The record is a 104-nucleotide RNA from Dethiosulfatibacter aminovorans, which matches "Glycine riboswitch aptamer" in Rfam. Taxonomically the source falls in Dethiosulfatibacter aminovorans (Bacteria, Bacillati, Tissierellia, Dethiosulfatibacter). Rfam links the family to the GO term glycine biosynthetic process. Rfam describes the family as follows. This family represents the bacterial glycine riboswitch.
[Rfam]
RNA sequence: AGGACGGUUGCGAGAGAUACCUUAGGUGGUAGCCGAAGGAGAAAUGCGGACAGUUUAGCCCAUUGGCCGUAGAAACUCUCAGGCAACAGGAUCGCAAUCUGAUG
Number, nucleotide and partner (000 for none) at each position: 001a000002g000003g000004a000005c000006g099007g098008u097009u096010g095011c094012g093013a092014g000015a000016g000017a000018u000019a030020c029021c028022u000023u000024a000025g000026g000027u000028g021029g020030u019031a000032g084033c083034c082035g080036a079037a000038g000039g078040a077041g076042a000043a000044a000045u071046g070047c069048g068049g067050a000051c000052a000053g000054u000055u000056u000057a000058g000059c000060c000061c000062a000063u000064u000065g000066g000067c049068c048069g047070u046071a045072g000073a000074a000075a000076c041077u040078c039079u036080c035081a000082g034083g033084c032085a000086a000087c000088a000089g000090g000091a000092u013093c012094g011095c010096a009097a008098u007099c006100u000101g000102a000103u000104g000